[Rfam]
RNA sequence: AACGACCGGUCGGACACGUGCGUGCCCGGCCCACAAGUGGAGGCUCCGAUCUCCCACCUGGCCGCUCCUCAGGGGCGGCGGGUCACCGGUCAGGUGGUGCCCAUCGUUCCGUACGGACGAUGGAACCGCCCGAUGCGCCCCGUGGCAUACGCGCGGCGGUGCUCCGGUAUUCGAGGAGCUCCUGCCUGUGUGCCGUCCGGGGCAUUUUUG
Numbered sequence: 001a002a003c004g005a006c007c008g009g010u011c012g013g014a015c016a017c018g019u020g021c022g023u024g025c026c027c028g029g030c031c032c033a034c035a036a037g038u039g040g041a042g043g044c045u046c047c048g049a050u051c052u053c054c055c056a057c058c059u060g061g062c063c064g065c066u067c068c069u070c071a072g073g074g075g076c077g078g079c080g081g082g083u084c085a086c087c088g089g090u091c092a093g094g095u096g097g098u099g100c101c102c103a104u105c106g107u108u109c110c111g112u113a114c115g116g117a118c119g120a121u122g123g124a125a126c127c128g129c130c131c132g133a134u135g136c137g138c139c140c141c142g143u144g145g146c147a148u149a150c151g152c153g154c155g156g157c158g159g160u161g162c163u164c165c166g167g168u169a170u171u172c173g174a175g176g177a178g179c180u181c182c183u184g185c186c187u188g189u190g191u192g193c194c195g196u197c198c199g200g201g202g203c204a205u206u207u208u209u210g
Stems, first nucleotide, its partner, number of pairs: 004091006012027002028084005034060002037057004041052002061079007093130005101123008137203006143195003152190003155186005161179005
RNA: Streptomyces RNA 1601
Organism: Streptomyces scopuliridis